[Rfam]
Shown here is a 395-nucleotide RNA sequence from Halopolyspora algeriensis, a member of the family "Bacterial RNase P class A". Rfam describes the family as follows. Ribonuclease P (RNase P) is a ubiquitous endoribonuclease, found in archaea, bacteria and eukarya as well as chloroplasts and mitochondria. Its best characterised activity is the generation of mature 5'-ends of tRNAs by cleaving the 5'-leader elements of precursor-tRNAs. Cellular RNase Ps are ribonucleoproteins. By type it is a ribozyme.
RNA sequence: CGAGUCGGCCGGGCGAUCGCGGCGGGAGUGUCCCGUCGAGGAAAGUCCGGACUCCACAGGGCAGGGUGGUUGCCAACAGCAACCCGGGGUGACCCGCGGGAAAGUGCCACAGAAAACAGACCGCCCGGUGUCGACAGCCGGGUAAGGGUGAAACGGCGGUGUAAGAGACCACCAGCAUCCCGGGUGACCGGGAUGGCUCGGUAAACCCCACCCGGAGCAAGGUCAAGAGGACGUCGUGUUCGGCGUCUGCGCAGGUGUUCGAGGGUGGCCCGCCCGAGACCUGCGGGUAGACCGCUGGAGCCCGCCGGCGACGGCGGGCCAAGAUGGAUGAUCGCCGAAUGGGAGUGCCGCAAGGCCCCCAGGAACAGGAUCCGGCUUACAGGCCGACUCGUCCG
Numbered sequence: 001c002g003a004g005u006c007g008g009c010c011g012g013g014c015g016a017u018c019g020c021g022g023c024g025g026g027a028g029u030g031u032c033c034c035g036u037c038g039a040g041g042a043a044a045g046u047c048c049g050g051a052c053u054c055c056a057c058a059g060g061g062c063a064g065g066g067u068g069g070u071u072g073c074c075a076a077c078a079g080c081a082a083c084c085c086g087g088g089g090u091g092a093c094c095c096g097c098g099g100g101a102a103a104g105u106g107c108c109a110c111a112g113a114a115a116a117c118a119g120a121c122c123g124c125c126c127g128g129u130g131u132c133g134a135c136a137g138c139c140g141g142g143u144a145a146g147g148g149u150g151a152a153a154c155g156g157c158g159g160u161g162u163a164a165g166a167g168a169c170c171a172c173c174a175g176c177a178u179c180c181c182g183g184g185u186g187a188c189c190g191g192g193a194u195g196g197c198u199c200g201g202u203a204a205a206c207c208c209c210a211c212c213c214g215g216a217g218c219a220a221g222g223u224c225a226a227g228a229g230g231a232c233g234u235c236g237u238g239u240u241c242g243g244c245g246u247c248u249g250c251g252c253a254g255g256u257g258u259u260c261g262a263g264g265g266u267g268g269c270c271c272g273c274c275c276g277a278g279a280c281c282u283g284c285g286g287g288u289a290g291a292c293c294g295c296u297g298g299a300g301c302c303c304g305c306c307g308g309c310g311a312c313g314g315c316g317g318g319c320c321a322a323g324a325u326g327g328a329u330g331a332u333c334g335c336c337g338a339a340u341g342g343g344a345g346u347g348c349c350g351c352a353a354g355g356c357c358c359c360c361a362g363g364a365a366c367a368g369g370a371u372c373c374g375g376c377u378u379a380c381a382g383g384c385c386g387a388c389u390c391g392u393c394c395g
Stems, first nucleotide, its partner, number of pairs: 001391010011380001012336007020038008043378003047375005052217004059271004064213005069083005084098001085096004099208002104206002106202003121147002123143007130135001155173002158170003175197001176195008221293004251284006263275004300319008